[Rfam]
TPP riboswitch aptamer (THI element): a 105-nucleotide RNA sequence from Rivibacter subsaxonicus. It scores 58 bits against the family's covariance model. Taxonomically the source falls in Rivibacter (Bacteria, Pseudomonadati, Pseudomonadota, Burkholderiales). The family's consensus secondary structure is taken from published work. Its family is annotated with thiamine pyrophosphate binding in the Gene Ontology. Rfam describes the family as follows. Vitamin B(1) in its active form thiamin pyrophosphate (TPP) is an essential coenzyme that is synthesised by coupling of pyrimidine and thiazole moieties in bacteria.

RNA sequence: CCGCCUCGCUAGGGGUGUUGACGCUUCCACUGAAGCGCCGACUGAGAAAGUCCCUUUGAACCUGAUUGAGGUAAUCCUCGCGCAGGGAAGCGUCAUGGCACGAAG
Numbered sequence: 001c002c003g004c005c006u007c008g009c010u011a012g013g014g015g016u017g018u019u020g021a022c023g024c025u026u027c028c029a030c031u032g033a034a035g036c037g038c039c040g041a042c043u044g045a046g047a048a049a050g051u052c053c054c055u056u057u058g059a060a061c062c063u064g065a066u067u068g069a070g071g072u073a074a075u076c077c078u079c080g081c082g083c084a085g086g087g088a089a090g091c092g093u094c095a096u097g098g099c100a101c102g103a104a105g
Stems, first nucleotide, its partner, number of pairs: 007092004011055004016049001017042004061086004067080004